[Rfam]
RNA: MIR396 microRNA precursor family
Organism: Mikania micrantha
RNA sequence: CAUCAUGUUUUUCCACAGCUUUCUUGAACUUUUUAGUUUCACAAGUCUUUUAUUAAUUUCUUGGGAUUAUGAACAAAAGCUCAAGAAAGUUGUGGGAGGACAUGACGA
Numbered sequence: 001c002a003u004c005a006u007g008u009u010u011u012u013c014c015a016c017a018g019c020u021u022u023c024u025u026g027a028a029c030u031u032u033u034u035a036g037u038u039u040c041a042c043a044a045g046u047c048u049u050u051u052a053u054u055a056a057u058u059u060c061u062u063g064g065g066a067u068u069a070u071g072a073a074c075a076a077a078a079g080c081u082c083a084a085g086a087a088a089g090u091u092g093u094g095g096g097a098g099g100a101c102a103u104g105a106c107g108a
Base pairs, nucleotide, nucleotide: 003105004104005103006102007101013095014094015093017091018090019089020088021087022086024084025083026082027081029079030078031077032076033075